[Rfam]
RNA sequence: GUUGAACAAGCCGGAACCUUUGACUCAACCUUAUGAAGUAUUCAAUUUAGUUGAGCAAAGUUUCAGGUGUGUCCAAUG
Numbered sequence: 001g002u003u004g005a006a007c008a009a010g011c012c013g014g015a016a017c018c019u020u021u022g023a024c025u026c027a028a029c030c031u032u033a034u035g036a037a038g039u040a041u042u043c044a045a046u047u048u049a050g051u052u053g054a055g056c057a058a059a060g061u062u063u064c065a066g067g068u069g070u071g072u073c074c075a076a077u078g
Base pairs, nucleotide, nucleotide: 002076003075004074006072007071010068011067012066014064015063018060019059020058021057024055025054026053027052030050031049
RNA: mir-87 microRNA precursor family